[Rfam]
RNA sequence: AGAAUGAUGGCUGUAAAGAAGUGCCAAGCGCACGGGCUGUUCAUGCUU
Numbered sequence: 001a002g003a004a005u006g007a008u009g010g011c012u013g014u015a016a017a018g019a020a021g022u023g024c025c026a027a028g029c030g031c032a033c034g035g036g037c038u039g040u041u042c043a044u045g046c047u048u
Base pairs, nucleotide, nucleotide: 008039009038010037011036012035021033022032023031024030
The family of this 48-nucleotide RNA from Oscillospiraceae bacterium HV4-5-C5C is "ssnA RNA". NCBI's taxonomy places the organism under Bacteria, Bacillati, Bacillota, Clostridia, Oscillospiraceae. It is annotated as a cis-regulatory element. The base pairs follow the family's consensus structure, which is taken from published work.